Background: This 107-nucleotide RNA from Populus tomentosa belongs to the Rfam family "MIR480 microRNA precursor family".

RNA sequence: UAAUCUACACGUGGUAAAUUUCUAUCUAGUUGUGGUAAAUCCAUACUUGAUCGUUGAAAAUCAUAUGUUAUUAAAUUUUUAUUUUAUUUUCCCACGAGGGCUAGUCC
Numbered sequence: 001u002a003a004u005c006u007a008c009a010c011g012u013g014g015u016a017a018a019u020u021u022c023u024a025u026c027u028a029g030u031u032g033u034g035g036u037a038a039a040u041c042c043a044u045a046c047u048u049g050a051u052c053g054u055u056g057a058a059a060a061u062c063a064u065a066u067g068u069u070a071u072u073a074a075a076u077u078u079u080u081a082u083u084u085u086a087u088u089u090u091c092c093c094a095c096g097a098g099g100g101c102u103a104g105u106c107c
Base pairs, nucleotide, nucleotide: 005104006103007102008100012096014095015094018087019086024082025081028077029076030075031074

Overview: The match comes from Rfam's covariance-model search (43 bits). The family has 69 seed sequences and 3,070 matches in Rfam 15.1.